[Rfam]
RNA sequence: GCCGCUUCAUGACAGGAAGGACUGAAAUGUCUCAAAGACCUGUGGUCUUUCUUCGAUGUUCUGCGGC
Numbered sequence: 001g002c003c004g005c006u007u008c009a010u011g012a013c014a015g016g017a018a019g020g021a022c023u024g025a026a027a028u029g030u031c032u033c034a035a036a037g038a039c040c041u042g043u044g045g046u047c048u049u050u051c052u053u054c055g056a057u058g059u060u061c062u063g064c065g066g067c
Stems, first nucleotide, its partner, number of pairs: 001067005014053010029039003